RNA sequence: GGAUUACUCCUUUACGCUUUCGCGUUUGGUUGAUAAAGAUUCGCACCUCUAUCAAACCGGGUAAUCCCACCUCUUGGCAAGACCUGCUGUCAGAUCAAAUCUGAACUACUACACUUCAGGUACACAGAAGAUUGCACUGAAAAUACUCUCCUCCUGAUGAAGGAUAUUGCGGGCGGUAGGGUGAUCCUGAUUAAGGUUGUAAUGCUUCUGCCACAUUUUCCUGUUGGACACUGCGU
Number, nucleotide and partner (000 for none) at each position: 001g067002g066003a065004u064005u063006a062007c061008u000009c060010c059011u000012u000013u000014a025015c024016g023017c022018u000019u000020u000021c000022g017023c016024g015025u014026u000027u000028g058029g057030u056031u055032g053033a052034u051035a050036a000037a048038g047039a000040u000041u000042c000043g000044c000045a000046c000047c038048u037049c000050u035051a034052u033053c032054a000055a031056a030057c029058c028059g010060g009061g007062u006063a005064a004065u003066c002067c001068c000069a236070c235071c000072u000073c000074u000075u000076g187077g186078c000079a000080a000081g000082a182083c000084c181085u180086g000087c000088u000089g106090u105091c103092a102093g101094a100095u099096c000097a000098a000099a095100u094101c093102u092103g091104a000105a090106c089107u000108a177109c176110u175111a000112c000113a000114c000115u000116u000117c000118a000119g000120g000121u000122a000123c000124a000125c000126a000127g000128a000129a000130g000131a000132u000133u000134g000135c000136a000137c000138u000139g000140a000141a000142a000143a000144u000145a000146c000147u000148c000149u000150c000151c000152u000153c000154c000155u000156g000157a000158u000159g000160a000161a000162g000163g000164a000165u000166a000167u000168u000169g000170c000171g000172g000173g000174c000175g110176g109177u108178a000179g000180g085181g084182u082183g000184a000185u000186c077187c076188u000189g000190a000191u000192u000193a000194a000195g000196g000197u000198u000199g000200u000201a000202a000203u000204g000205c000206u000207u228208c227209u000210g000211c000212c226213a225214c223215a222216u000217u000218u000219u000220c000221c000222u215223g214224u000225u213226g212227g208228a207229c000230a000231c000232u000233g000234c000235g070236u069

Proteobacterial sRNA psRNA2: a 236-nucleotide RNA sequence from Nitrosomonas europaea. The base pairs follow the family's consensus structure. Taxonomically the source falls in Nitrosomonas europaea (Bacteria, Pseudomonadota, Betaproteobacteria, Nitrosomonas). It is annotated as a small RNA. The literature on the family includes a 2010 paper in FEMS Microbiol Lett by Gvakharia et al., "Computational prediction and transcriptional analysis of sRNAs in Nitrosomonas europaea".